[Rfam]
RNA sequence: CAUCUCUGGAGAGAAUUCUUAAGCGAAAGAAUCACCCAAGGGGAAAUUUGUUGACCGGCACUUGAAGUGGUGUGAAGUCUUGUAAACCCUUUUUGGCCGUUAAGCAAAGUAACUCUCAGGUACCAAGGACAGAGCGGAAGAA
Number, nucleotide and partner (000 for none) at each position: 001c137002a000003u000004c134005u133006c132007u131008g130009g000010a000011g000012a000013g000014a000015a032016u031017u030018c029019u000020u000021a000022a000023g000024c000025g000026a000027a000028a000029g018030a017031a016032u015033c000034a121035c120036c119037c000038a116039a000040g000041g115042g114043g113044a000045a000046a000047u108048u107049u106050g105051u104052u103053g000054a000055c000056c000057g000058g000059c000060a000061c000062u000063u000064g000065a000066a000067g000068u000069g000070g000071u000072g000073u000074g000075a000076a000077g000078u000079c000080u000081u000082g000083u000084a000085a000086a000087c000088c000089c000090u000091u000092u000093u000094u000095g000096g000097c000098c000099g000100u000101u000102a000103a052104g051105c050106a049107a048108a047109g000110u000111a000112a000113c043114u042115c041116u038117c000118a000119g036120g035121u034122a000123c000124c000125a000126a000127g000128g000129a000130c008131a007132g006133a005134g004135c000136g000137g001138a000139a000140g000141a000142a000